[Rfam]
RNA sequence: ACUCUCCCAGCUCUGCACUGUUACACUUGACUUCACACGUGUGACUUUCGUAAUGGGGAGAGAGAGAAAGGACCCCCUCAGGACCUCAGUUGGCCUCACAGUGGCCAGCCUUUCCCUGAGGGGCGCAACAAGC
Numbered sequence: 001a002c003u004c005u006c007c008c009a010g011c012u013c014u015g016c017a018c019u020g021u022u023a024c025a026c027u028u029g030a031c032u033u034c035a036c037a038c039g040u041g042u043g044a045c046u047u048u049c050g051u052a053a054u055g056g057g058g059a060g061a062g063a064g065a066g067a068a069a070g071g072a073c074c075c076c077c078u079c080a081g082g083a084c085c086u087c088a089g090u091u092g093g094c095c096u097c098a099c100a101g102u103g104g105c106c107a108g109c110c111u112u113u114c115c116c117u118g119a120g121g122g123g124c125g126c127a128a129c130a131a132g133c
Stems, first nucleotide, its partner, number of pairs: 002066005008060001011058005020045007074123005080117003088111002091107005
The record is a 133-nucleotide sequence from Pipistrellus kuhlii, which matches "Small nucleolar RNA SNORA64/SNORA10 family" in Rfam.
The family is grouped with related families in Rfam's "SNORA64 clan".
About the family: This family belongs to the H/ACA class of small nucleolar RNAs (snoRNAs) which act as guides in the the modification of uridines to pseudouridines. This family includes the human snoRNAs U64 and ACA10 and mouse MBI-29.
The family's consensus secondary structure is taken from published work.
Gene Ontology terms of the family: nucleolus and RNA processing.